RNA sequence: AUGUGCCUUAAGUAGUAACCAUUAAGAGGUUGUUGUUAGAUUUAAAUCCACCUUUUAAUGUACUACUUAUGACAAAUG
Numbered sequence: 001a002u003g004u005g006c007c008u009u010a011a012g013u014a015g016u017a018a019c020c021a022u023u024a025a026g027a028g029g030u031u032g033u034u035g036u037u038a039g040a041u042u043u044a045a046a047u048c049c050a051c052c053u054u055u056u057a058a059u060g061u062a063c064u065a066c067u068u069a070u071g072a073c074a075a076a077u078g
Base pairs, nucleotide, nucleotide: 004074005073007071010068011067012066013065014064015063016062017061020060021059022058023057024056025055026054027053028052029051030050032048

Rfam assigns this 78-nucleotide RNA from Drosophila virilis to the family "mir-968 microRNA precursor family". Pairs were carried over by alignment from the consensus structure, which was predicted with RNAalifold. NCBI's taxonomy places the organism under Eukaryota, Metazoa, Mandibulata, Insecta, Drosophila. Its family is annotated with miRNA-mediated post-transcriptional gene silencing and RISC complex in the Gene Ontology. The sequence is in the family's curated seed alignment.